[Rfam]
RNA sequence: GGAGCCAUCGGGAGGGAUACCAAUCCGGCCUUGGAAAAGAAAGCUGCCACGGAGUCUUGGAGAUUGGCGACCAUCCUAAUGACUUA
Numbered sequence: 001g002g003a004g005c006c007a008u009c010g011g012g013a014g015g016g017a018u019a020c021c022a023a024u025c026c027g028g029c030c031u032u033g034g035a036a037a038a039g040a041a042a043g044c045u046g047c048c049a050c051g052g053a054g055u056c057u058u059g060g061a062g063a064u065u066g067g068c069g070a071c072c073a074u075c076c077u078a079a080u081g082a083c084u085u086a
Stems, first nucleotide, its partner, number of pairs: 002085003006081003010077004015072002018069001020067006029060002037058004044052003
Shown here is an 86-nucleotide RNA sequence from Equus asinus, a member of the family "mir-9014 microRNA precursor family". Rfam links the family to the GO terms miRNA-mediated post-transcriptional gene silencing and RISC complex. Rfam 15.1 lists 581 matches to the family in 2 species.